[Rfam]
RNA sequence: AUUGUUCCCCAGCCUUUUGGCUUAGAUCAAGUGUAGUAUCUGUUCUUUUCAGUUUAAUCUCUGAAACGGUUCUACGGAACCAUUUCUCGAUUAUUCUUAUUUUUGUACCUACCCUUCGACUCCCUGUGCUUGCACACAGUCAAGGGACAGUGCCCUUCCUAUCUCACUACCUGGAAGCGUGCGCGAACCUCU
Numbered sequence: 001a002u003u004g005u006u007c008c009c010c011a012g013c014c015u016u017u018u019g020g021c022u023u024a025g026a027u028c029a030a031g032u033g034u035a036g037u038a039u040c041u042g043u044u045c046u047u048u049u050c051a052g053u054u055u056a057a058u059c060u061c062u063g064a065a066a067c068g069g070u071u072c073u074a075c076g077g078a079a080c081c082a083u084u085u086c087u088c089g090a091u092u093a094u095u096c097u098u099a100u101u102u103u104u105g106u107a108c109c110u111a112c113c114c115u116u117c118g119a120c121u122c123c124c125u126g127u128g129c130u131u132g133c134a135c136a137c138a139g140u141c142a143a144g145g146g147a148c149a150g151u152g153c154c155c156u157u158c159c160u161a162u163c164u165c166a167c168u169a170c171c172u173g174g175a176a177g178c179g180u181g182c183g184c185g186a187a188c189c190u191c192u
Stems, first nucleotide, its partner, number of pairs: 008025001011022004047066006068081005113146004118141003125136004150184004155177005

U2 spliceosomal RNA: a 192-nucleotide RNA sequence from Corynespora cassiicola.
Clan: U2 clan.
By type it is a spliceosomal small nuclear RNA.
Rfam links the family to the GO terms pre-mRNA branch point binding, mRNA branch site recognition and U2 snRNP.